[Rfam]
RNA sequence: AAAACUAUCAGGCCGAAGCUUUCUAUGAAAGCACGGGGGACCCAUUCUAUGGGGUGAAGCCGCGUCUUGCGGCAGGGUGCUUGCUCUUUGACCCGAAUCCGUCAGCUAACCUCGCAGGCCGCGAAAAGGAGAGGA
Numbered sequence: 001a002a003a004a005c006u007a008u009c010a011g012g013c014c015g016a017a018g019c020u021u022u023c024u025a026u027g028a029a030a031g032c033a034c035g036g037g038g039g040a041c042c043c044a045u046u047c048u049a050u051g052g053g054g055u056g057a058a059g060c061c062g063c064g065u066c067u068u069g070c071g072g073c074a075g076g077g078u079g080c081u082u083g084c085u086c087u088u089u090g091a092c093c094c095g096a097a098u099c100c101g102u103c104a105g106c107u108a109a110c111c112u113c114g115c116a117g118g119c120c121g122c123g124a125a126a127a128g129g130a131g132a133g134g135a
Base pairs, nucleotide, nucleotide: 011120012119013118014117018032019031020030034114035113036112037111038110043051044050052100053099054098060072061071062070063069075094076093077092078091
The family of this 135-nucleotide RNA from Paenibacillus sp. OAS669 is "c-di-AMP riboswitch aptamer (ydaO/yuaA leader)". Rfam describes the family as follows. This family represents a conserved RNA structure found upstream of the ydaO and yuaA genes in Bacillus subtilis and related genes in other bacteria. A search with the family's covariance model found it, with a score of 95 bits. Taxonomically the source falls in Paenibacillus (Bacteria, Bacillati, Bacilli, Paenibacillaceae).